[Rfam]
This 96-nucleotide sequence from Longibaculum muris belongs to the Rfam family "pemK RNA". It is annotated as a cis-regulatory element. The match comes from Rfam's covariance-model search (40 bits).
RNA sequence: ACAAUGAUACUCCUAUAUAGCCUUAGCUUGAGCGUUUGAAGCGUCGCACGCAAAGGAUAUAGCUGCACCGUGUAUGCAGGGGUGGAACUCCCGUGA
Number, nucleotide and partner (000 for none) at each position: 001a000002c000003a000004a000005u000006g000007a000008u000009a000010c000011u000012c093013c062014u061015a060016u059017a058018u057019a000020g000021c000022c000023u000024u000025a000026g000027c000028u000029u000030g000031a000032g000033c000034g000035u000036u000037u000038g000039a000040a000041g000042c000043g000044u000045c000046g000047c000048a000049c000050g000051c000052a000053a000054a000055g000056g000057a018058u017059a016060u015061a014062g013063c079064u078065g077066c000067a075068c000069c000070g000071u000072g000073u000074a000075u067076g000077c065078a064079g063080g092081g091082g090083u000084g000085g000086a000087a000088c000089u000090c082091c081092c080093g012094u000095g000096a000